RNA: tRNA
RNA sequence: GGGAUCGUAGCUCAUCAGGAUAGAGCAACUGCCUUCUAAGCAGUAGGUAGGGGGUUCGAGUCCCUCCGGUCCCG
Numbered sequence: 001g002g003g004a005u006c007g008u009a010g011c012u013c014a015u016c017a018g019g020a021u022a023g024a025g026c027a028a029c030u031g032c033c034u035u036c037u038a039a040g041c042a043g044u045a046g047g048u049a050g051g052g053g054g055u056u057c058g059a060g061u062c063c064c065u066c067c068g069g070u071c072c073c074g
Stems, first nucleotide, its partner, number of pairs: 001073007010026004028044005050066005